[Rfam]
RNA sequence: AAAUGAUAAUAGCAAACUUAUGGAAACAUAAGGACGCAAAGACAUGGGUCUAAAAUACAUAUUAACGUAUUAUGAUUGCCAGUUUGCCGAA
Numbered sequence: 001a002a003a004u005g006a007u008a009a010u011a012g013c014a015a016a017c018u019u020a021u022g023g024a025a026a027c028a029u030a031a032g033g034a035c036g037c038a039a040a041g042a043c044a045u046g047g048g049u050c051u052a053a054a055a056u057a058c059a060u061a062u063u064a065a066c067g068u069a070u071u072a073u074g075a076u077u078g079c080c081a082g083u084u085u086g087c088c089g090a091a
Stems, first nucleotide, its partner, number of pairs: 012037002017032006040085004045081003048076003055070004
A member of the RNA family "c-di-GMP-I riboswitch aptamer" from Oceanirhabdus seepicola, 91 nucleotides long. Pairs were carried over by alignment from the consensus structure, which is taken from published work. Gene Ontology term of the family: cyclic-di-GMP binding. On this family, see Weinberg et al., Nucleic Acids Res 2007: "Identification of 22 candidate structured RNAs in bacteria using the CMfinder comparative genomics pipeline". It scores 81 bits against the family's covariance model. Taxonomically the source falls in Oceanirhabdus (Bacteria, Clostridia, Eubacteriales, Clostridiaceae).